RNA: azaaromatic riboswitch aptamer (yjdF RNA)
Organism: Acetanaerobacterium elongatum
RNA sequence: AACUGCAAAGAUAAAAACACAGUUCCGGUUGGUAGUCCGGACGCAGCAGACGCUGUCAGUAACCUGCCUCCUUGGUUGUCCGUUCUUUGCAUGCAAACG
Numbered sequence: 001a002a003c004u005g006c007a008a009a010g011a012u013a014a015a016a017a018c019a020c021a022g023u024u025c026c027g028g029u030u031g032g033u034a035g036u037c038c039g040g041a042c043g044c045a046g047c048a049g050a051c052g053c054u055g056u057c058a059g060u061a062a063c064c065u066g067c068c069u070c071c072u073u074g075g076u077u078g079u080c081c082g083u084u085c086u087u088u089g090c091a092u093g094c095a096a097a098c099g
Stems, first nucleotide, its partner, number of pairs: 004091008022042002025040004043056005066076003